[Rfam]
RNA sequence: ACAAAUCCAAUGAUAGAGAAAGUAGCAUAUAUGGAUUUACAGCGAGUUAGGGGUUGGUGUAAGCCUAGCAAUGAAGUCUAUGUGAAGAGAGCUCUGGAGGAGAUUAUCAGAAACUUUAGUAUGAUAAUUGGUUUACCCGCCUUAAGGGAUUGAGAGGAUAAGUACUUACUUAUCAAAAAGAGUGGUAACGCGGAUAUAAUUCGUCUCUUAG
Numbered sequence: 001a002c003a004a005a006u007c008c009a010a011u012g013a014u015a016g017a018g019a020a021a022g023u024a025g026c027a028u029a030u031a032u033g034g035a036u037u038u039a040c041a042g043c044g045a046g047u048u049a050g051g052g053g054u055u056g057g058u059g060u061a062a063g064c065c066u067a068g069c070a071a072u073g074a075a076g077u078c079u080a081u082g083u084g085a086a087g088a089g090a091g092c093u094c095u096g097g098a099g100g101a102g103a104u105u106a107u108c109a110g111a112a113a114c115u116u117u118a119g120u121a122u123g124a125u126a127a128u129u130g131g132u133u134u135a136c137c138c139g140c141c142u143u144a145a146g147g148g149a150u151u152g153a154g155a156g157g158a159u160a161a162g163u164a165c166u167u168a169c170u171u172a173u174c175a176a177a178a179a180g181a182g183u184g185g186u187a188a189c190g191c192g193g194a195u196a197u198a199a200u201u202c203g204u205c206u207c208u209u210a211g
Stems, first nucleotide, its partner, number of pairs: 007100002015095004025083005035072003046069006103128007130141003157174007179208004190204005
Dot-bracket structure: ......((......((((......(((((.....(((........((((((............)))))))))......)))))........))))...))..(((((((............))))))).(((......)))...............(((((((....)))))))....((((.......(((((.....)))))))))...
T-box leader: a 211-nucleotide RNA sequence from Clostridioides difficile. Rfam's curators write: Uncharged tRNA acts as the effector for transcription antitermination of genes in the T-box leader family. NCBI's taxonomy places the organism under Bacteria, Bacillota, Clostridia, Peptostreptococcales, Clostridioides.